[Rfam]
RNA sequence: UCUGACCCGCGGACCCGGACUCCCAGCCAUGCGCCCUGACACACCUUCCCCGGUGUCAGGUCGGGAUGGAUGGGGAUCCGGAUCCACGGUCCAGGAAGC
Number, nucleotide and partner (000 for none) at each position: 001u000002c000003u000004g000005a000006c000007c000008c000009g000010c000011g085012g084013a083014c000015c081016c080017g000018g078019a077020c000021u075022c074023c073024c072025a071026g000027c069028c068029a067030u066031g000032c063033g062034c000035c060036c059037u058038g057039a056040c055041a054042c053043a000044c000045c000046u000047u000048c000049c000050c000051c000052g000053g042054u041055g040056u039057c038058a037059g036060g035061u000062c033063g032064g000065g000066a030067u029068g028069g027070a000071u025072g024073g023074g022075g021076a000077u019078c018079c000080g016081g015082a000083u013084c012085c011086a000087c000088g000089g000090u000091c000092c000093a000094g000095g000096a000097a000098g000099c000
mraW RNA: a 99-nucleotide RNA sequence from Curtobacterium sp. MCBD17_040. NCBI's taxonomy places the organism under Bacteria, Actinomycetota, Micrococcales, Microbacteriaceae, Curtobacterium. The base pairs follow the family's consensus structure, which is taken from published work. It scores 53 bits against the family's covariance model. It is annotated as a cis-regulatory element.